[Rfam]
RNA sequence: AUAAAAUAAAGGCACAGCUAUCGAAAGAUAGUGUCGCAAAGCUAUGGGUCUAAGGGGUUACUAUGAUUGCCAGGUUGCCGUU
Dot-bracket structure: ...........((...((((((....))))))...))..((((.((((((....(.....)...)))..)))))))......
Shown here is an 82-nucleotide sequence from Petrocella atlantisensis, a member of the family "c-di-GMP-I riboswitch aptamer". Taxonomically the source falls in Petrocella (Bacteria, Clostridia, Lachnospirales, Vallitaleaceae).